[Rfam]
RNA sequence: AGAAAAGGCCUUUCAGGCAUCCUCUCCUAAAACUUCCGGGCCGGCGUUCGCGUCGGCCCUUUUUUUUGUGCGCC
Number, nucleotide and partner (000 for none) at each position: 001a000002g000003a000004a000005a000006a000007g000008g018009c017010c016011u015012u000013u000014c000015a011016g010017g009018c008019a000020u000021c000022c000023u000024c000025u000026c000027c000028u000029a000030a000031a000032a000033c000034u000035u000036c000037c000038g059039g058040g057041c056042c055043g054044g053045c052046g051047u000048u000049c000050g000051c046052g045053u044054c043055g042056g041057c040058c039059c038060u000061u000062u000063u000064u000065u000066u000067u000068g000069u000070g000071c000072g000073c000074c000
About this RNA: Rfam assigns this 74-nucleotide sequence from Sphingobium fontiphilum to the family "Makes More Granules Regulator RNA (mmgR)". For this family Rfam cites "Phylogenetic distribution and evolutionary pattern of an alpha-proteobacterial small RNA gene that controls polyhydroxybutyrate accumulation in Sinorhizobium meliloti" (Lagares et al., Mol Phylogenet Evol, 2016). It scores 59 bits against the family's covariance model. SuhB later renamed mmgR (makes more granules regulator) was a putative non-coding RNA found multiple times in the Agrobacterium tumefaciens genome and related alpha-proteobacteria. Rfam classes the family as a small RNA. Rfam links the family to the GO terms response to nitrogen compound, DNA-templated transcription, termination and protein binding. The pairing is the family consensus, mapped onto this sequence.